Shown here is a 121-nucleotide RNA from Zooshikella ganghwensis, a member of the family "TPP riboswitch aptamer (THI element)".

[Rfam]
RNA sequence: CCGAACUCAUCGGGGUGCAAACGUGUGGUUGCGUCACUAUUGAUCUAUCACACUCGCUGAGAGAUACCCGUAGAACCUGAUCCAGUUAAAACUGGCGUAGGAAGUUGAGUGCUGUCCUAAG
Numbered sequence: 001c002c003g004a005a006c007u008c009a010u011c012g013g014g015g016u017g018c019a020a021a022c023g024u025g026u027g028g029u030u031g032c033g034u035c036a037c038u039a040u041u042g043a044u045c046u047a048u049c050a051c052a053c054u055c056g057c058u059g060a061g062a063g064a065u066a067c068c069c070g071u072a073g074a075a076c077c078u079g080a081u082c083c084a085g086u087u088a089a090a091a092c093u094g095g096c097g098u099a100g101g102a103a104g105u106u107g108a109g110u111g112c113u114g115u116c117c118u119a120a121g
Base pairs, nucleotide, nucleotide: 006109007108008107009106011070012069013068014067016064017057018056020054076101077100078099079098082095083094084093085092
Taxonomically the source falls in Zooshikella (Bacteria, Pseudomonadota, Oceanospirillales, Zooshikellaceae). The family's consensus secondary structure is taken from published work. Gene Ontology term of the family: thiamine pyrophosphate binding.